[Rfam]
RNA sequence: AUUGAAGAUAGAGGUUGCAUUUUUCAAGAGUAUGAUGUUGGAUGUUCCAGAAACAGGUGAAAACAGCAGAAAGGGAAAGAUGCCGAAAGAAUAUAGCAUCUGGGUUAUAGUUCUUGGGCGUGACAUUAACAGUGGCACGACUGUCAUCGCAAGGUGGAGUGCUAUCCCAUGU
Numbered sequence: 001a002u003u004g005a006a007g008a009u010a011g012a013g014g015u016u017g018c019a020u021u022u023u024u025c026a027a028g029a030g031u032a033u034g035a036u037g038u039u040g041g042a043u044g045u046u047c048c049a050g051a052a053a054c055a056g057g058u059g060a061a062a063a064c065a066g067c068a069g070a071a072a073g074g075g076a077a078a079g080a081u082g083c084c085g086a087a088a089g090a091a092u093a094u095a096g097c098a099u100c101u102g103g104g105u106u107a108u109a110g111u112u113c114u115u116g117g118g119c120g121u122g123a124c125a126u127u128a129a130c131a132g133u134g135g136c137a138c139g140a141c142u143g144u145c146a147u148c149g150c151a152a153g154g155u156g157g158a159g160u161g162c163u164a165u166c167c168c169a170u171g172u
Base pairs, nucleotide, nucleotide: 007166008165009164010163011162017083018082019081020080021079022078023077024076025075033068034067036065037064038063039062087115088114089113090112091111092109093108094107095106096105097104116142117141119139120138121137122136124134125133126132144157145156146155147154148153